Background
mir-8834 microRNA precursor family: a 101-nucleotide RNA sequence from Nyctereutes procyonoides.
RNA sequence: AGGAACAACAGUGGUGGCGGCCAGCUCUGGAGCCCUGGAGUCAUGUCCUGCAGUUACUACAGAGCUCUCAGUCUGCAGGGGCCUGGAUGCCCCGGGGGCCG
Numbered sequence: 001a002g003g004a005a006c007a008a009c010a011g012u013g014g015u016g017g018c019g020g021c022c023a024g025c026u027c028u029g030g031a032g033c034c035c036u037g038g039a040g041u042c043a044u045g046u047c048c049u050g051c052a053g054u055u056a057c058u059a060c061a062g063a064g065c066u067c068u069c070a071g072u073c074u075g076c077a078g079g080g081g082c083c084u085g086g087a088u089g090c091c092c093c094g095g096g097g098g099c100c101g
Stems, first nucleotide, its partner, number of pairs: 002093002006089002009085003016073003019068002023066007031058001035053003
Taxonomically the source falls in Nyctereutes (Eukaryota, Bilateria, Deuterostomia, Euteleostomi).
Gene Ontology terms of the family: RISC complex and miRNA-mediated post-transcriptional gene silencing.